About this RNA: This 200-nucleotide RNA sequence from Psychrilyobacter sp. S5 belongs to the Rfam family "Group II catalytic intron D1-D4-5".
RNA sequence: AACAACUGUAAGUCCGAUAAGAGGAAUGAUGGCGUAACGUCUUGAAACUCUUACCCUAAUACUACGAUAUGCAUCUAUAUACUUUAAUAUAUAGGGGUAUAAAGCUCGUUGAAGUCAGUUAAGAAGUAGCCCUAAGGUUUUACCUUAGGAAAGGUAGUUUCAAUGGAAACUAGGUUACCGAUAGACUGGGGGUCUAUAAA
Numbered sequence: 001a002a003c004a005a006c007u008g009u010a011a012g013u014c015c016g017a018u019a020a021g022a023g024g025a026a027u028g029a030u031g032g033c034g035u036a037a038c039g040u041c042u043u044g045a046a047a048c049u050c051u052u053a054c055c056c057u058a059a060u061a062c063u064a065c066g067a068u069a070u071g072c073a074u075c076u077a078u079a080u081a082c083u084u085u086a087a088u089a090u091a092u093a094g095g096g097g098u099a100u101a102a103a104g105c106u107c108g109u110u111g112a113a114g115u116c117a118g119u120u121a122a123g124a125a126g127u128a129g130c131c132c133u134a135a136g137g138u139u140u141u142a143c144c145u146u147a148g149g150a151a152a153g154g155u156a157g158u159u160u161c162a163a164u165g166g167a168a169a170c171u172a173g174g175u176u177a178c179c180g181a182u183a184g185a186c187u188g189g190g191g192g193u194c195u196a197u198a199a200a
Stems, first nucleotide, its partner, number of pairs: 018053006031043002034040001054192004064109004068101005074095008116188005126178005131149003136144002155172007
Rfam 15.1 lists 720 matches to the family in 418 species. The base pairs follow the family's consensus structure. On this family, see Bonen and Vogel, Trends Genet 2001: "The ins and outs of group II introns". Group II introns are found in rRNA, tRNA and mRNA of organelles in fungi, plants and protists, and also in mRNA in bacteria. The match comes from Rfam's covariance-model search (152 bits). Gene Ontology term of the family: Group II intron splicing.